[Rfam]
RNA sequence: CUGACAAACGGAGAUGACAUGCCUCCAUAACCGCCCCAUUAGGCUGAUGGUGUCUACGCUACC
Numbered sequence: 001c002u003g004a005c006a007a008a009c010g011g012a013g014a015u016g017a018c019a020u021g022c023c024u025c026c027a028u029a030a031c032c033g034c035c036c037c038a039u040u041a042g043g044c045u046g047a048u049g050g051u052g053u054c055u056a057c058g059c060u061a062c063c
Base pairs, nucleotide, nucleotide: 010026011025012024013023016054017053018052019051020050033044034043035042
Fluoride riboswitch aptamer (crcB RNA motif): a 63-nucleotide sequence from Serratia sp. DD3. Pairs were carried over by alignment from the consensus structure, which is taken from published work.